[Rfam]
RNA sequence: AGGCUUUCUCGCUUUCCAUUCCCUGUUCUUCCUGGAGUCAGGAAAAGCUGAGUUGAGAGGGAAAAAAAAAAAAAGU
Numbered sequence: 001a002g003g004c005u006u007u008c009u010c011g012c013u014u015u016c017c018a019u020u021c022c023c024u025g026u027u028c029u030u031c032c033u034g035g036a037g038u039c040a041g042g043a044a045a046a047g048c049u050g051a052g053u054u055g056a057g058a059g060g061g062a063a064a065a066a067a068a069a070a071a072a073a074a075g076u
Stems, first nucleotide, its partner, number of pairs: 014059003021052001023050001025048001029044006
This 76-nucleotide sequence from Propithecus coquereli belongs to the Rfam family "mir-320 microRNA precursor family". The family has 38 seed sequences and 659 matches in Rfam 15.1. A reference for the family is Berezikov et al. (2006), "Many novel mammalian microRNA candidates identified by extensive cloning and RAKE analysis", Genome Res. Pairs were carried over by alignment from the consensus structure, which was predicted with RNAalifold. A search with the family's covariance model found it, with a score of 62 bits. Gene Ontology terms of the family: RISC complex, cellular response to glucose stimulus and long-term synaptic potentiation.